RNA sequence: GUCUCUGUGAUACAAUCAGGUAGUGUGUUCAGCUGUUAACUGAAAAAAUGGUGGUUUGAGCCCACCCAGGGACA
Number, nucleotide and partner (000 for none) at each position: 001g073002u072003c071004u070005c069006u068007g067008u000009g000010a026011u025012a024013c023014a000015a000016u000017c000018a000019g000020g000021u000022a000023g013024u012025g011026u010027g000028u044029u043030c042031a041032g040033c000034u000035g000036u000037u000038a000039a000040c032041u031042g030043a029044a028045a000046a000047a000048a000049u000050g066051g065052u064053g063054g062055u000056u000057u000058g000059a000060g000061c000062c054063c053064a052065c051066c050067c007068a006069g005070g004071g003072a002073c001074a000
RNA: tRNA
Organism: Grallaria varia